[Rfam]
RNA sequence: CAAAAGGGUCGGUUGGCUAUGUAUGCCAUGCACAUCUUUUAAUUGAUGGGCGCUGUAUGGUUAUCAAGACAUAUGGCCGACAUAAUUUAUGGAUCUUAUUGGGUUGGCUUGCACGGCUAACCCUCUU
Numbered sequence: 001c002a003a004a005a006g007g008g009u010c011g012g013u014u015g016g017c018u019a020u021g022u023a024u025g026c027c028a029u030g031c032a033c034a035u036c037u038u039u040u041a042a043u044u045g046a047u048g049g050g051c052g053c054u055g056u057a058u059g060g061u062u063a064u065c066a067a068g069a070c071a072u073a074u075g076g077c078c079g080a081c082a083u084a085a086u087u088u089a090u091g092g093a094u095c096u097u098a099u100u101g102g103g104u105u106g107g108c109u110u111g112c113a114c115g116g117c118u119a120a121c122c123c124u125c126u127u
Base pairs, nucleotide, nucleotide: 008081009080010079011078012077014028015027016026017025029052030051031050033048034047035046036045053076054075055074056073057072058071059070101123102122103121104120105119106118107117109116110115
The family of this 127-nucleotide sequence from Dendrobium nobile is "U11 spliceosomal RNA". The base pairs follow the family's consensus structure, which is taken from published work. Gene Ontology terms of the family: mRNA 5'-splice site recognition, pre-mRNA 5'-splice site binding and U11 snRNP. The match comes from Rfam's covariance-model search (67 bits). The family has 72 seed sequences and 2,595 matches in Rfam 15.1. The organism belongs to Dendrobium, within Eukaryota.